[Rfam]
The family of this 131-nucleotide RNA sequence from Solibacillus sp. R5-41 is "FMN riboswitch aptamer (RFN element)".

RNA sequence: GUUUUCCUUCGGGGUCGGGUGAAAAUCCCAAUCGGCGGUGAUGAAGAAAUUCUAAGCCCGCGAGCCUUUUUUAGGCAGGAUUUGGUGUGAAUCCAAAGCCGACAGUAUAGUCUGGAUGGGAGAAGGAAAUA
Numbered sequence: 001g002u003u004u005u006c007c008u009u010c011g012g013g014g015u016c017g018g019g020u021g022a023a024a025a026u027c028c029c030a031a032u033c034g035g036c037g038g039u040g041a042u043g044a045a046g047a048a049a050u051u052c053u054a055a056g057c058c059c060g061c062g063a064g065c066c067u068u069u070u071u072u073a074g075g076c077a078g079g080a081u082u083u084g085g086u087g088u089g090a091a092u093c094c095a096a097a098g099c100c101g102a103c104a105g106u107a108u109a110g111u112c113u114g115g116a117u118g119g120g121a122g123a124a125g126g127a128a129a130u131a
Stems, first nucleotide, its partner, number of pairs: 003129008017029003031111002033101002035061004056099002066075001081097005103114003
The organism belongs to Solibacillus, within Bacteria.